[Rfam]
RNA sequence: AGAAGUUCAUCUGUGUGAACUUUGUGAUUGACAGCUCAACACAAGUGCGGACUACCGUAAACACAGUUUGAACGUUUUUUGGAGAGAGACUACUAUGUCUAACAAAAAACCAGGAAAACCCGGGGCAACCCGGGUUGUCAAUAUGCUAAAGC
Numbered sequence: 001a002g003a004a005g006u007u008c009a010u011c012u013g014u015g016u017g018a019a020c021u022u023u024g025u026g027a028u029u030g031a032c033a034g035c036u037c038a039a040c041a042c043a044a045g046u047g048c049g050g051a052c053u054a055c056c057g058u059a060a061a062c063a064c065a066g067u068u069u070g071a072a073c074g075u076u077u078u079u080u081g082g083a084g085a086g087a088g089a090c091u092a093c094u095a096u097g098u099c100u101a102a103c104a105a106a107a108a109a110c111c112a113g114g115a116a117a118a119c120c121c122g123g124g125g126c127a128a129c130c131c132g133g134g135u136u137g138u139c140a141a142u143a144u145g146c147u148a149a150a151g152c
Stems, first nucleotide, its partner, number of pairs: 005073005011066006020045002023043004030037002046059005074110008087100004114139002117136007

The record is a 152-nucleotide RNA sequence from Orthoflavivirus bagazaense, which matches "Flavivirus 5' UTR" in Rfam. Rfam classes the family as a cis-regulatory element. About the family: The 5' UTR of flaviviruses are highly structured, has a length of approximately 100 nucleotides and harbors two conserved RNA secondary structures vital for the viral life cycle. During replication, a long-range RNA-RNA interaction between 5' UTR and 3' UTR of the genome is formed to initiate synthesis of new viral replicates and viral protein translation. In direct adjacency to the 5' UTR, already part of the coding region, lies the cHP structure, which is essential for the viral replication. The first structural element is termed 5'SLA and comprises three stems (S1, S2, S3) folded as Y-shaped-like stem structure, and a side structure domain (SSD). Its overall length is around 70 nucleotides. Viral replication is stopped by disruption of S1 and S2. Further, via RNA-protein interaction with NS5, SLA serves as a promoter for RNA synthesis during circularization of the viral genome. Despite the diversity of SSD, its stable structure is essential for infectivity. The second structural element is termed 5'SLB. At its top region of the stem loop lies the translation initiation codon. It further contains the 5'UAR (upstream AUG region), which is essential for the circularization of the genome. The 5'UAR interacts with the 3'UAR, which is located at the 3' UTR of the genome to form the long-range RNA-RNA interaction. At the start of the coding region lies the capsid-coding hairpin region (cHP), which is followed by the 5'CS (conserved sequence). The 5'CS forms an additional long-range RNA-RNA interaction with the 3' UTR (3'CS). The cHP further aids in the start codon recognition and thus in viral replication. Studies show that the function of cHP is sequence-independent but structure-dependent. Gene Ontology term of the family: viral RNA genome replication.